[Rfam]
About this RNA: The family of this 102-nucleotide RNA sequence from Populus trichocarpa is "MIR475 microRNA precursor family". The family's consensus secondary structure was predicted with RNAalifold. Rfam 15.1 lists 38 matches to the family in 12 species. It is one of the family's seed sequences. Gene Ontology terms of the family: miRNA-mediated post-transcriptional gene silencing and RISC complex. The organism belongs to Populus, within Eukaryota. On this family, see Lu et al., Plant Cell 2005: "Novel and mechanical stress-responsive MicroRNAs in Populus trichocarpa that are absent from Arabidopsis".

Nucleotides: 102
Base pairs, nucleotide, nucleotide: 003100004099005098006097007096009094010093011092012091013090014089015088016087017086018085020083022081023080024079025078026077027076028075029074030073031072033071035069036068038066039065040064044061045060048057049056050055
Number, partner (000 for none) and nucleotide at each position: 001000u002000a003100a004099c005098a006097u007096c008000c009094u010093g011092a012091u013090c014089a015088a016087u017086g018085g019000c020083c021000a022081u023080u024079g025078u026077a027076a028075g029074a030073g031072u032000a033071g034000a035069a036068g037000g038066a039065u040064c041000c042000a043000u044061g045060a046000a047000g048057c049056a050055a051000a052000a053000c054000a055050u056049u057048g058000a059000c060045u061044c062000c063000u064040g065039a066038u067000a068036u069035u070000c071033c072031a073030c074029u075028c076027u077026u078025a079024c080023a081022g082000a083020g084000u085018c086017c087016a088015u089014u090013g091012a092011u093010u094009a095000a096007g097006a098005u099004g100003u101000u102000a